RNA sequence: CGGAGGACUGAGAAGGUUAAGCAGCUUGUGUUGUGCUGUUAUAACUGGUUAUAACCUCCAACAGUAACAAACAAACCACACAAUUACAGAGCUGUGUCUUCGGCAGAGCUCAUAAGAGUGUGGUGAACAAAAU
Numbered sequence: 001c002g003g004a005g006g007a008c009u010g011a012g013a014a015g016g017u018u019a020a021g022c023a024g025c026u027u028g029u030g031u032u033g034u035g036c037u038g039u040u041a042u043a044a045c046u047g048g049u050u051a052u053a054a055c056c057u058c059c060a061a062c063a064g065u066a067a068c069a070a071a072c073a074a075a076c077c078a079c080a081c082a083a084u085u086a087c088a089g090a091g092c093u094g095u096g097u098c099u100u101c102g103g104c105a106g107a108g109c110u111c112a113u114a115a116g117a118g119u120g121u122g123g124u125g126a127a128c129a130a131a132a133u
Stems, first nucleotide, its partner, number of pairs: 002059005015046004020040006079125003083121002086119002
Record summary:
The family of this 133-nucleotide RNA from Anabas testudineus is "Small nucleolar RNA SNORA47". Gene Ontology terms of the family: nucleolus and RNA processing. Rfam classes the family as an H/ACA-box small nucleolar RNA. On this family, see Huttenhofer et al., EMBO J 2001: "RNomics: an experimental approach that identifies 201 candidates for novel, small, non-messenger RNAs in mouse". The base pairs follow the family's consensus structure, which was predicted with WAR.